[Rfam]
RNA sequence: AAGCUUCAGGUCUGUGGUUGAAAAUCGAUGCCAGUCGCAGGCGAAACGAUCCACGUAAGGCACCCAAAAAUGGGGGUCGAUCAUGGUGCGGCCUAGAUGUAAGCCCGGCCAAUCAACAAGGUUGAGAGAAGGAUUCGUGAGGCAACCCCGAGCUAAACUUCCAGCCGGCGGGUGUGGGGGCAAAAACCAGGUCAGCUGAAGCAU
Numbered sequence: 001a002a003g004c005u006u007c008a009g010g011u012c013u014g015u016g017g018u019u020g021a022a023a024a025u026c027g028a029u030g031c032c033a034g035u036c037g038c039a040g041g042c043g044a045a046a047c048g049a050u051c052c053a054c055g056u057a058a059g060g061c062a063c064c065c066a067a068a069a070a071u072g073g074g075g076g077u078c079g080a081u082c083a084u085g086g087u088g089c090g091g092c093c094u095a096g097a098u099g100u101a102a103g104c105c106c107g108g109c110c111a112a113u114c115a116a117c118a119a120g121g122u123u124g125a126g127a128g129a130a131g132g133a134u135u136c137g138u139g140a141g142g143c144a145a146c147c148c149c150g151a152g153c154u155a156a157a158c159u160u161c162c163a164g165c166c167g168g169c170g171g172g173u174g175u176g177g178g179g180g181c182a183a184a185a186a187c188c189a190g191g192u193c194a195g196c197u198g199a200a201g202c203a204u
Stems, first nucleotide, its partner, number of pairs: 001204001003202007012195003015189005028175003031041001034092006050086002055081001059077001061075001063073002084182001105168005110124005128161004137153002